[Rfam]
RNA sequence: ACGCGGAAAGGAGGUGGUCCGAAUAAUGGUGAGUCAUAGUCGGGCUAGCGAGGUGGUUGUCCGCUAACGUCGCGGACUCGUUGUCUCGUUGACGUCAGCGAAUACGAGGCAACCACCGGGGCCCCUGGCAGCCGGAGGGCGGGAUCCCAUCCCGCCGUUGGUCCAUCCGGCCCACCUGCGCGGCAGGUGGAGUGUUGCCCGGGGCCCUUUUCAC
Numbered sequence: 001a002c003g004c005g006g007a008a009a010g011g012a013g014g015u016g017g018u019c020c021g022a023a024u025a026a027u028g029g030u031g032a033g034u035c036a037u038a039g040u041c042g043g044g045c046u047a048g049c050g051a052g053g054u055g056g057u058u059g060u061c062c063g064c065u066a067a068c069g070u071c072g073c074g075g076a077c078u079c080g081u082u083g084u085c086u087c088g089u090u091g092a093c094g095u096c097a098g099c100g101a102a103u104a105c106g107a108g109g110c111a112a113c114c115a116c117c118g119g120g121g122c123c124c125c126u127g128g129c130a131g132c133c134g135g136a137g138g139g140c141g142g143g144a145u146c147c148c149a150u151c152c153c154g155c156c157g158u159u160g161g162u163c164c165a166u167c168c169g170g171c172c173c174a175c176c177u178g179c180g181c182g183g184c185a186g187g188u189g190g191a192g193u194g195u196u197g198c199c200c201g202g203g204g205c206c207c208u209u210u211u212c213a214c
Stems, first nucleotide, its partner, number of pairs: 013061006062100004067095006075087002118208008127199006
This 214-nucleotide sequence from Nonomuraea aridisoli belongs to the Rfam family "Actinobacteria sRNA Ms_IGR-5". The source organism's lineage runs through Bacteria, Bacillati, Streptosporangiales, Streptosporangiaceae and Nonomuraea. By type it is a small RNA. The match comes from Rfam's covariance-model search (64 bits).